[Rfam]
RNA sequence: GGAUAAUAUUGGCAAACUUAAUGAAAAUUAAGGACGCAAAGCUAUGGGGCUAAGGAUGUAUUCUAUGCCUGCCAGGCUGCUAUA
Numbered sequence: 001g002g003a004u005a006a007u008a009u010u011g012g013c014a015a016a017c018u019u020a021a022u023g024a025a026a027a028u029u030a031a032g033g034a035c036g037c038a039a040a041g042c043u044a045u046g047g048g049g050c051u052a053a054g055g056a057u058g059u060a061u062u063c064u065a066u067g068c069c070u071g072c073c074a075g076g077c078u079g080c081u082a083u084a
Stems, first nucleotide, its partner, number of pairs: 012037002017032006040078004045074003048069003055063002
Rfam assigns this 84-nucleotide sequence from Dendrosporobacter quercicolus to the family "c-di-GMP-I riboswitch aptamer". The organism belongs to Dendrosporobacter, within Bacteria. A search with the family's covariance model found it, with a score of 74 bits. Pairs were carried over by alignment from the consensus structure, which is taken from published work.